Background
mir-217 microRNA precursor family: a 94-nucleotide RNA sequence from Albula goreensis. It scores 86 bits against the family's covariance model. The family has 28 seed sequences and 698 matches in Rfam 15.1. Its family is annotated with RISC complex and miRNA-mediated post-transcriptional gene silencing in the Gene Ontology. The literature on the family includes a 2003 paper in Science by Lim et al., "Vertebrate microRNA genes".

[Rfam]
RNA sequence: UGACCUCUGGUGUUGAUGAUACUGCAUCAGAAACUGAUUGGAUGAUAUCGCAGGGACCAUCAGUUCCUGAUGCAUUGCCUUCAGCAUCGAAAGA
Numbered sequence: 001u002g003a004c005c006u007c008u009g010g011u012g013u014u015g016a017u018g019a020u021a022c023u024g025c026a027u028c029a030g031a032a033a034c035u036g037a038u039u040g041g042a043u044g045a046u047a048u049c050g051c052a053g054g055g056a057c058c059a060u061c062a063g064u065u066c067c068u069g070a071u072g073c074a075u076u077g078c079c080u081u082c083a084g085c086a087u088c089g090a091a092a093g094a
Stems, first nucleotide, its partner, number of pairs: 023074005029068002032065006039059003